Description:
Shown here is a 93-nucleotide RNA from Planococcus lenghuensis, a member of the family "Selenocysteine transfer RNA". It scores 63 bits against the family's covariance model. Lineage of the source: Bacteria > Bacillota > Caryophanales > Caryophanaceae > Planococcus.

RNA sequence: GGGGUUGGAUGGGUGACUGGUGUCCCCCUGGGUCUUCAAAACCCUGAGGGAGGCGCGUGCCGUCUCCGGUGGGUUCGAUUCCCACACUAUCCC
Numbered sequence: 001g002g003g004g005u006u007g008g009a010u011g012g013g014u015g016a017c018u019g020g021u022g023u024c025c026c027c028c029u030g031g032g033u034c035u036u037c038a039a040a041a042c043c044c045u046g047a048g049g050g051a052g053g054c055g056c057g058u059g060c061c062g063u064c065u066c067c068g069g070u071g072g073g074u075u076c077g078a079u080u081c082c083c084a085c086a087c088u089a090u091c092c093c
Stems, first nucleotide, its partner, number of pairs: 001093005007087001008085001011027003015024003028046001030044004049067005070084004